[Rfam]
RNA sequence: GCCUUGUGGUUCCUAGAGACAGCUGGACUGUGCUGAUCUGUGGGUUUUUGAUUGACAGGCAAAUAUGAACUCUGUGAUUUUAUGCAUGGGAGCUGCCACUUCAAGUAGCCUCCAUAGCCCGGUUGCAGAGACCAUA
Numbered sequence: 001g002c003c004u005u006g007u008g009g010u011u012c013c014u015a016g017a018g019a020c021a022g023c024u025g026g027a028c029u030g031u032g033c034u035g036a037u038c039u040g041u042g043g044g045u046u047u048u049u050g051a052u053u054g055a056c057a058g059g060c061a062a063a064u065a066u067g068a069a070c071u072c073u074g075u076g077a078u079u080u081u082a083u084g085c086a087u088g089g090g091a092g093c094u095g096c097c098a099c100u101u102c103a104a105g106u107a108g109c110c111u112c113c114a115u116a117g118c119c120c121g122g123u124u125g126c127a128g129a130g131a132c133c134a135u136a
Stems, first nucleotide, its partner, number of pairs: 001060004007051001008048001012044004017039001020035004072128001074126006084118002086115004092109005
RNA: Small nucleolar RNA SNORA84